RNA sequence: CUGUUAGGGGAAUGAUGUACUACUACAAGGCUCUCAAGAUGCUCACGUUUCUUGACUCCGCUUCUGAGAUUGACAUAAGGG
Numbered sequence: 001c002u003g004u005u006a007g008g009g010g011a012a013u014g015a016u017g018u019a020c021u022a023c024u025a026c027a028a029g030g031c032u033c034u035c036a037a038g039a040u041g042c043u044c045a046c047g048u049u050u051c052u053u054g055a056c057u058c059c060g061c062u063u064c065u066g067a068g069a070u071u072g073a074c075a076u077a078a079g080g081g
Base pairs, nucleotide, nucleotide: 001081002080004078005077006076
Dot-bracket structure: ((.(((.....................................................................))).))